The record is a 157-nucleotide RNA from Aureobasidium namibiae, which matches "Small nucleolar RNA snR80" in Rfam. The organism belongs to Aureobasidium namibiae, within Eukaryota. Its family is annotated with nucleolus and RNA processing in the Gene Ontology. The family is grouped with related families in Rfam's "SNORA28 clan". Rfam 15.1 lists 447 matches to the family in 358 species.
RNA sequence: UUCACUUUGCCACACUCUGGACCUCGCCCAUUUUCCUGUGGCCUUGUCCAAUUUUAAGUGCAAAGAAGACUAAACUUCUUGUCCUACUACUCACCGGCAUGUCUCCUUUCUUUUCAAGGGAAGCGUGGGCAUAUCGGUCCAUGUUUAAGGUCUACAU
Numbered sequence: 001u002u003c004a005c006u007u008u009g010c011c012a013c014a015c016u017c018u019g020g021a022c023c024u025c026g027c028c029c030a031u032u033u034u035c036c037u038g039u040g041g042c043c044u045u046g047u048c049c050a051a052u053u054u055u056a057a058g059u060g061c062a063a064a065g066a067a068g069a070c071u072a073a074a075c076u077u078c079u080u081g082u083c084c085u086a087c088u089a090c091u092c093a094c095c096g097g098c099a100u101g102u103c104u105c106c107u108u109u110c111u112u113u114u115c116a117a118g119g120g121a122a123g124c125g126u127g128g129g130c131a132u133a134u135c136g137g138u139c140c141a142u143g144u145u146u147a148a149g150g151u152c153u154a155c156a157u
Stems, first nucleotide, its partner, number of pairs: 007063003018050005026042003081152001083150002094137004099132003103129003